RNA sequence: AUUUCUUCUCCGGGUGAGAGAAACACGUAUCGAAGGUUCAUGGCUCAGACAUCAACACCAACACCAACACCAUUUUUUUGAGAAGAACUUGGUCAUGCAUGUGGCUAUAUAUUAAUUGUUUGGUUAUGUACACAUUAUGUAUACGGGUUGCUCUCACCUGGGCUAGAGCUGC
Numbered sequence: 001a002u003u004u005c006u007u008c009u010c011c012g013g014g015u016g017a018g019a020g021a022a023a024c025a026c027g028u029a030u031c032g033a034a035g036g037u038u039c040a041u042g043g044c045u046c047a048g049a050c051a052u053c054a055a056c057a058c059c060a061a062c063a064c065c066a067a068c069a070c071c072a073u074u075u076u077u078u079u080g081a082g083a084a085g086a087a088c089u090u091g092g093u094c095a096u097g098c099a100u101g102u103g104g105c106u107a108u109a110u111a112u113u114a115a116u117u118g119u120u121u122g123g124u125u126a127u128g129u130a131c132a133c134a135u136u137a138u139g140u141a142u143a144c145g146g147g148u149u150g151c152u153c154u155c156a157c158c159u160g161g162g163c164u165a166g167a168g169c170u171g172c
Stems, first nucleotide, its partner, number of pairs: 003168004009162012023148002026145005033138001036133001
The family of this 172-nucleotide RNA sequence from Cajanus cajan is "MIR4416 microRNA precursor family".
The organism belongs to Cajanus, within Eukaryota.
Gene Ontology terms of the family: miRNA-mediated post-transcriptional gene silencing and RISC complex.